[Rfam]
Nucleotides: 128
Base pairs, nucleotide, nucleotide: 004057005056006055007054008053012047013046014045016043017042018041019040020039021038024035025034081107082106083105084104086102087101088100090099091098092097
Number, partner (000 for none) and nucleotide at each position: 001000c002000a003000c004057c005056g006055c007054u008053c009000u010000c011000c012047a013046g014045c015000u016043c017042c018041g019040u020039g021038u022000g023000a024035g025034g026000a027000u028000g029000u030000u031000c032000u033000a034025c035024u036000c037000a038021a039020u040019g041018c042017g043016g044000c045014g046013u047012u048000u049000c050000a051000a052000u053008g054007a055006g056005c057004g058000a059000a060000u061000a062000u063000c064000a065000a066000a067000g068000a069000a070000c071000g072000c073000u074000g075000a076000c077000g078000a079000u080000u081107a082106u083105u084104g085000a086102u087101a088100u089000u090099u091098c092097u093000c094000a095000a096000u097092g098091g099090a100088a101087u102086a103000u104084c105083g106082a107081u108000c109000a110000c111000u112000u113000a114000a115000a116000g117000c118000u119000u120000c121000g122000u123000a124000c125000a126000a127000a128000u

Rfam assigns this 128-nucleotide sequence from Haemonchus placei to the family "Nematode snoRNA ceN36-1". The literature on the family includes a 2007 paper in BMC Mol Biol by Jia et al., "Systematic identification of non-coding RNA 2,2,7-trimethylguanosine cap structures in Caenorhabditis elegans". The match comes from Rfam's covariance-model search (72 bits). Pairs were carried over by alignment from the consensus structure, which was predicted with RNAalifold. Its family is annotated with RNA processing and nucleolus in the Gene Ontology. Rfam 15.1 lists 28 matches to the family in 21 species.